TPP riboswitch aptamer (THI element): a 101-nucleotide RNA from Sulfitobacter sediminilitoris.

[Rfam]
RNA sequence: UCCGUCACCUCGGGGGGCCAUCCACUGGCUGAGAUUGCGCAAGCUGACCCGUUGAACCUGAACCGGUUAACACCGGCGGAGGGAAGGUCUGGGCAUACUUC
Number, nucleotide and partner (000 for none) at each position: 001u000002c000003c000004g000005u000006c000007a088008c087009c086010u085011c051012g050013g049014g048015g000016g045017g029018c028019c027020a026021u000022c000023c000024a000025c000026u020027g019028g018029c017030u000031g000032a000033g000034a000035u000036u000037g044038c043039g000040c000041a000042a000043g038044c037045u016046g000047a000048c014049c013050c012051g011052u000053u000054g000055a000056a000057c082058c081059u080060g000061a000062a000063c076064c075065g074066g073067u000068u000069a000070a000071c000072a000073c066074c065075g064076g063077c000078g000079g000080a059081g058082g057083g000084a000085a010086g009087g008088u007089c000090u000091g000092g000093g000094c000095a000096u000097a000098c000099u000100u000101c000